[Rfam]
RNA sequence: UCCAUGGUGACGUGGAAUCUGAAGGAAAUCCUAGGCAAACCUUCGGUCUGACGAACAGAAAUCAUAUAAGAGGCGACAUAUGUGGAUAAGACUGCGAAAGAAGUUGAAGUCCAAUAGCUAUUACAAAAGCAUAUGGCGUAUAUAUGGCAGAUGGAUGGAGGAAAAGCGUUCGUA
Numbered sequence: 001u002c003c004a005u006g007g008u009g010a011c012g013u014g015g016a017a018u019c020u021g022a023a024g025g026a027a028a029u030c031c032u033a034g035g036c037a038a039a040c041c042u043u044c045g046g047u048c049u050g051a052c053g054a055a056c057a058g059a060a061a062u063c064a065u066a067u068a069a070g071a072g073g074c075g076a077c078a079u080a081u082g083u084g085g086a087u088a089a090g091a092c093u094g095c096g097a098a099a100g101a102a103g104u105u106g107a108a109g110u111c112c113a114a115u116a117g118c119u120a121u122u123a124c125a126a127a128a129g130c131a132u133a134u135g136g137c138g139u140a141u142a143u144a145u146g147g148c149a150g151a152u153g154g155a156u157g158g159a160g161g162a163a164a165a166g167c168g169u170u171c172g173u174a
Stems, first nucleotide, its partner, number of pairs: 001016006029174001031172001035167002040161006046152005062147006073139003077135007084112004090105004

A member of the RNA family "Group II catalytic intron D1-D4-3" from Amphibacillus xylanus, 174 nucleotides long. About the family: Group II introns are found in rRNA, tRNA and mRNA of organelles in fungi, plants and protists, and also in mRNA in bacteria. Its family is annotated with Group II intron splicing in the Gene Ontology. Taxonomically the source falls in Amphibacillus xylanus (Bacteria, Bacillota, Caryophanales, Amphibacillus).